This 106-nucleotide RNA sequence from Papaver somniferum belongs to the Rfam family "Plastid-psbA-1 3UTR RNA". Lineage of the source: Eukaryota > Streptophyta > Tracheophyta > Ranunculales > Papaver.
[Rfam]
RNA sequence: UUCAAGCUCCAUCCACAACGAUACUUCCGUCUUAGUGUAUAUGAAACGUUGAAGUUGAAGGAGCAAUACCGACCCUCUUGAUAAUUAGAGGGUCGUAUUGCCCUUC
Numbered sequence: 001u002u003c004a005a006g007c008u009c010c011a012u013c014c015a016c017a018a019c020g021a022u023a024c025u026u027c028c029g030u031c032u033u034a035g036u037g038u039a040u041a042u043g044a045a046a047c048g049u050u051g052a053a054g055u056u057g058a059a060g061g062a063g064c065a066a067u068a069c070c071g072a073c074c075c076u077c078u079u080g081a082u083a084a085u086u087a088g089a090g091g092g093u094c095g096u097a098u099u100g101c102c103c104u105u106c
Stems, first nucleotide, its partner, number of pairs: 008021002057106005063101007071094003075090004
The base pairs follow the family's consensus structure, which was predicted with LocARNA.